[Rfam]
RNA sequence: UGUAGUGUUCCUUUGGGACCUGUCUGCUGUGGCAGCCUCCUUUUCUAGCUGCUGAAGGACAGAUUCUUGUUUAUUGGCAAAGCUGUUACCAUUGAAUUGGUAUCAGAUUCUAUCUUGCACAAGUGACCGUC
Numbered sequence: 001u002g003u004a005g006u007g008u009u010c011c012u013u014u015g016g017g018a019c020c021u022g023u024c025u026g027c028u029g030u031g032g033c034a035g036c037c038u039c040c041u042u043u044u045c046u047a048g049c050u051g052c053u054g055a056a057g058g059a060c061a062g063a064u065u066c067u068u069g070u071u072u073a074u075u076g077g078c079a080a081a082g083c084u085g086u087u088a089c090c091a092u093u094g095a096a097u098u099g100g101u102a103u104c105a106g107a108u109u110c111u112a113u114c115u116u117g118c119a120c121a122a123g124u125g126a127c128c129g130u131c
Stems, first nucleotide, its partner, number of pairs: 003054005015041004020035005069127003074122003077118004083106003088101004
The family of this 131-nucleotide RNA sequence from Mesocricetus auratus is "Small nucleolar RNA SNORA24". Rfam describes the family as follows. ACA24 is a member of the H/ACA class of snoRNA that guide the sites of modification of uridines to pseudouridines. The match comes from Rfam's covariance-model search (111 bits). The family's RNA type in Rfam is H/ACA-box small nucleolar RNA. The family's consensus secondary structure was predicted with RNAfold.